[Rfam]
RNA sequence: UAGGCGCCUAGGAACCACUUGAUAUUUGUAUGUUGCGUGGGCCGAAAAUCGCCAAUAUUAAAUAGAUCGAAUAAAGGUCGUUCGUUCACUUCUUCCUAGUGCUCGGGCAUUACCAAUUUGAAAAACAUUU
Numbered sequence: 001u002a003g004g005c006g007c008c009u010a011g012g013a014a015c016c017a018c019u020u021g022a023u024a025u026u027u028g029u030a031u032g033u034u035g036c037g038u039g040g041g042c043c044g045a046a047a048a049u050c051g052c053c054a055a056u057a058u059u060a061a062a063u064a065g066a067u068c069g070a071a072u073a074a075a076g077g078u079c080g081u082u083c084g085u086u087c088a089c090u091u092c093u094u095c096c097u098a099g100u101g102c103u104c105g106g107g108c109a110u111u112a113c114c115a116a117u118u119u120g121a122a123a124a125a126c127a128u129u130u
Stems, first nucleotide, its partner, number of pairs: 003053004011043002015040004020035006067121006076114003080108002083105002
The record is a 130-nucleotide sequence from Pristionchus pacificus, which matches "Nematode snoRNA ceN39" in Rfam.
A search with the family's covariance model found it, with a score of 39 bits.
The literature on the family includes a 2007 paper in BMC Mol Biol by Jia et al., "Systematic identification of non-coding RNA 2,2,7-trimethylguanosine cap structures in Caenorhabditis elegans".
The base pairs follow the family's consensus structure, which was predicted with RNAalifold.
Its family is annotated with nucleolus and RNA processing in the Gene Ontology.